[Rfam]
RNA sequence: GGGGGUGUAGCUUAGUCCGGUUUAAAGCAGUCGCCUGUCGAGCGAAAGACCGUGGGUUCAAAUCCCAUCAUCCCCG
Numbered sequence: 001g002g003g004g005g006u007g008u009a010g011c012u013u014a015g016u017c018c019g020g021u022u023u024a025a026a027g028c029a030g031u032c033g034c035c036u037g038u039c040g041a042g043c044g045a046a047a048g049a050c051c052g053u054g055g056g057u058u059c060a061a062a063u064c065c066c067a068u069c070a071u072c073c074c075c076g
Stems, first nucleotide, its partner, number of pairs: 001075007010028004031045004052068005
Rfam assigns this 76-nucleotide sequence from Nostoc flagelliforme to the family "tRNA". Lineage of the source: Bacteria > Cyanobacteriota > Nostocales > Nostoc > Nostoc flagelliforme. About the family: Transfer RNA (tRNA) molecules are approximately 80 nucleotides in length. Pairs were carried over by alignment from the consensus structure, which is taken from published work.